[Rfam]
RNA sequence: AUUUAUUGAAGACUCCGAGCAUUAUUUCCUAACUCUAAAAAUUAAAGACAAAUUUUUGAUAUGGAAUUUAUGCCAGUAACAGCAUAAAGCUGUUCAAAGGAUAACUUAGAAAUGGGUUGUCCUCUCGUGUUUAGAAAGGUGUCAAAUGCAGUCUAUU
Numbered sequence: 001a002u003u004u005a006u007u008g009a010a011g012a013c014u015c016c017g018a019g020c021a022u023u024a025u026u027u028c029c030u031a032a033c034u035c036u037a038a039a040a041a042u043u044a045a046a047g048a049c050a051a052a053u054u055u056u057u058g059a060u061a062u063g064g065a066a067u068u069u070a071u072g073c074c075a076g077u078a079a080c081a082g083c084a085u086a087a088a089g090c091u092g093u094u095c096a097a098a099g100g101a102u103a104a105c106u107u108a109g110a111a112a113u114g115g116g117u118u119g120u121c122c123u124c125u126c127g128u129g130u131u132u133a134g135a136a137a138g139g140u141g142u143c144a145a146a147u148g149c150a151g152u153c154u155a156u157u
Stems, first nucleotide, its partner, number of pairs: 003151002006148001011143003015139002019073004024068001026066004034059002079093005098123011124134002
Dot-bracket structure: ..((.(....(((.((..((((.(.((((....((......................))...)))).).)))).....(((((.....)))))....(((((((((((....)))))))))))((.......))...)).)))....).))......
The record is a 157-nucleotide RNA from Mannheimia haemolytica, which matches "Molybdenum/Tungsten riboswitch aptamer (Moco RNA motif)" in Rfam. Pairs were carried over by alignment from the consensus structure, which is taken from published work. Gene Ontology terms of the family: molybdenum ion binding, regulation of gene expression and tungstate binding. Rfam 15.1 lists 1,248 matches to the family in 836 species.